[Rfam]
RNA sequence: GCUAACAGGGCCAAACUCGCUGUGAAGUGAGGACGGAAAGCCACGGAUCUUUCUCGAAAGAUAGCCGGGUUGCUUUGA
Numbered sequence: 001g002c003u004a005a006c007a008g009g010g011c012c013a014a015a016c017u018c019g020c021u022g023u024g025a026a027g028u029g030a031g032g033a034c035g036g037a038a039a040g041c042c043a044c045g046g047a048u049c050u051u052u053c054u055c056g057a058a059a060g061a062u063a064g065c066c067g068g069g070u071u072g073c074u075u076u077g078a
Stems, first nucleotide, its partner, number of pairs: 004074001011036002016031006034064001039071004044067003047062003